Annotation:
The record is a 178-nucleotide sequence from Clostridium luticellarii, which matches "Lysine riboswitch aptamer" in Rfam. NCBI's taxonomy places the organism under Bacteria, Bacillati, Bacillota, Clostridiaceae, Clostridium. Rfam links the family to the GO term lysine biosynthetic process.

[Rfam]
RNA sequence: AACUGGGAUAGAGGUGCAAAAUUCAAAAGUAAAACUGUGGAGUUAAGCCCGUUGAAGCAGCUUGAAAGGGAAUUUUGCCGAAGUAUUCAGAUACCGCUUUAAUGCUGAAUAACUGGGUAUGUGCAGAAUAUGCACAUAACUGUCACAAUAUUUAAAUUUGUGAAGAGCUAUCAUUCAU
Numbered sequence: 001a002a003c004u005g006g007g008a009u010a011g012a013g014g015u016g017c018a019a020a021a022u023u024c025a026a027a028a029g030u031a032a033a034a035c036u037g038u039g040g041a042g043u044u045a046a047g048c049c050c051g052u053u054g055a056a057g058c059a060g061c062u063u064g065a066a067a068g069g070g071a072a073u074u075u076u077g078c079c080g081a082a083g084u085a086u087u088c089a090g091a092u093a094c095c096g097c098u099u100u101a102a103u104g105c106u107g108a109a110u111a112a113c114u115g116g117g118u119a120u121g122u123g124c125a126g127a128a129u130a131u132g133c134a135c136a137u138a139a140c141u142g143u144c145a146c147a148a149u150a151u152u153u154a155a156a157u158u159u160g161u162g163a164a165g166a167g168c169u170a171u172c173a174u175u176c177a178u
Base pairs, nucleotide, nucleotide: 007172008171009170010169011168016078017077018076019075020074021073022072023071024070032063033062035060036059037058038057082114083113084112085110086109087108088107089106090105115141116140118138119137120136121135122134123133124132125131143163144162145161146160147159148158